[Rfam]
RNA sequence: UACCCCUUCCGUUUUGGGUAAUCCUACUGAGAUGUGCGUCAGCGGUAACGCUGGGGUGCAAAGCUCUCAGGACAAUAUGGAGAAAUUCAAAAGACUGAUUUGAAUGAACUGUUAGGAUAAGAAUACCACGAAGAAAACGAAAGUUG
Dot-bracket structure: .((((..........))))........((((((((((.((((((....)))))).)))))....)))))..............((.(((......))).))(.((...((....))......)).)......((.........)).
Numbered sequence: 001u002a003c004c005c006c007u008u009c010c011g012u013u014u015u016g017g018g019u020a021a022u023c024c025u026a027c028u029g030a031g032a033u034g035u036g037c038g039u040c041a042g043c044g045g046u047a048a049c050g051c052u053g054g055g056g057u058g059c060a061a062a063g064c065u066c067u068c069a070g071g072a073c074a075a076u077a078u079g080g081a082g083a084a085a086u087u088c089a090a091a092a093g094a095c096u097g098a099u100u101u102g103a104a105u106g107a108a109c110u111g112u113u114a115g116g117a118u119a120a121g122a123a124u125a126c127c128a129c130g131a132a133g134a135a136a137a138c139g140a141a142a143g144u145u146g
Stems, first nucleotide, its partner, number of pairs: 002019004028069005033060005039054006084101002087098003102126001104124002109116002133145002
The family of this 146-nucleotide RNA sequence from Candidatus Methanoperedens nitratireducens is "Group II catalytic intron D1-D4-7". Group II introns are found in rRNA, tRNA and mRNA of organelles in fungi, plants and protists, and also in mRNA in bacteria. Pairs were carried over by alignment from the consensus structure. The family has 244 seed sequences and 1,296 matches in Rfam 15.1. A reference for the family is Bonen and Vogel (2001), "The ins and outs of group II introns", Trends Genet. The source organism's lineage runs through Archaea, Methanobacteriota, ANME-2 cluster, Candidatus Methanoperedentaceae and Candidatus Methanoperedens.